[Rfam]
This 113-nucleotide RNA sequence from Heyndrickxia ginsengihumi belongs to the Rfam family "PyrR binding site".
RNA sequence: AACACCUUUUAAGCGAGGUCCAGAGAGGCCUAAAAGGGUGUCAUGAUAAUGGUAUCAGCAUAUGCCGAUCAAUCUUUCAUGCACCCUGAAUCAUCCAGGGUGCAUUUUUUUAU
Numbered sequence: 001a002a003c004a005c006c007u008u009u010u011a012a013g014c015g016a017g018g019u020c021c022a023g024a025g026a027g028g029c030c031u032a033a034a035a036g037g038g039u040g041u042c043a044u045g046a047u048a049a050u051g052g053u054a055u056c057a058g059c060a061u062a063u064g065c066c067g068a069u070c071a072a073u074c075u076u077u078c079a080u081g082c083a084c085c086c087u088g089a090a091u092c093a094u095c096c097a098g099g100g101u102g103c104a105u106u107u108u109u110u111u112a113u
Stems, first nucleotide, its partner, number of pairs: 005037005016031005046075001048073001050071002054069003058065002079105010
Taxonomically the source falls in Heyndrickxia (Bacteria, Bacillati, Bacilli, Caryophanales). The family's RNA type in Rfam is cis-regulatory element. Its family is annotated with pyrimidine nucleobase biosynthetic process and pyrimidine nucleobase transport in the Gene Ontology. This family represents the PyrR binding site and terminator structure. This RNA structure is found upstream of a variety of genes involved in pyrimidine biosynthesis and transport. The alignment also includes a portion of the antiterminator structure. For this family Rfam cites "Molecular recognition of pyr mRNA by the Bacillus subtilis attenuation regulatory protein PyrR" (Bonner et al., Nucleic Acids Res, 2001).